[Rfam]
RNA sequence: CCCCUCGAUUCCGGUAGCGGGACCGCCUAUAUGCGUCGGUGCCGGCUUGCCGGCUAUGGCGAUAAACACGACUCGGCAUAAGCGUUGCGGACCCGGGGGCAGUGCCCGGCGCCUCCACCAUCCUUCCCCGGCUUGUCGGCCGGUCUGGCAAGGGGGCGAAACAGGCUCGACGCGCGUGGUAAAGGGGUCGCUUUUGCCCGGCAUUGUACCGCCGUUAUCGGGCUAAAACCUAAGUGCGAACGACAACAGCCGCGAGGCUGUCGCACUCGCUGCCUAACACUAGGUAAGCGCGGCUCGGGGGGCGCCGGGCAACAGAAGCCCCCCACU
Numbered sequence: 001c002c003c004c005u006c007g008a009u010u011c012c013g014g015u016a017g018c019g020g021g022a023c024c025g026c027c028u029a030u031a032u033g034c035g036u037c038g039g040u041g042c043c044g045g046c047u048u049g050c051c052g053g054c055u056a057u058g059g060c061g062a063u064a065a066a067c068a069c070g071a072c073u074c075g076g077c078a079u080a081a082g083c084g085u086u087g088c089g090g091a092c093c094c095g096g097g098g099g100c101a102g103u104g105c106c107c108g109g110c111g112c113c114u115c116c117a118c119c120a121u122c123c124u125u126c127c128c129c130g131g132c133u134u135g136u137c138g139g140c141c142g143g144u145c146u147g148g149c150a151a152g153g154g155g156g157c158g159a160a161a162c163a164g165g166c167u168c169g170a171c172g173c174g175c176g177u178g179g180u181a182a183a184g185g186g187g188u189c190g191c192u193u194u195u196g197c198c199c200g201g202c203a204u205u206g207u208a209c210c211g212c213c214g215u216u217a218u219c220g221g222g223c224u225a226a227a228a229c230c231u232a233a234g235u236g237c238g239a240a241c242g243a244c245a246a247c248a249g250c251c252g253c254g255a256g257g258c259u260g261u262c263g264c265a266c267u268c269g270c271u272g273c274c275u276a277a278c279a280c281u282a283g284g285u286a287a288g289c290g291c292g293g294c295u296c297g298g299g300g301g302g303c304g305c306c307g308g309g310c311a312a313c314a315g316a317a318g319c320c321c322c323c324c325a326c327u
Stems, first nucleotide, its partner, number of pairs: 041054005058198005069190006083176003087173003093109005110158007199214004204225001206223001209221002291307004297324006
RNA: Alphaproteobacteria transfer-messenger RNA
Organism: Falsiroseomonas bella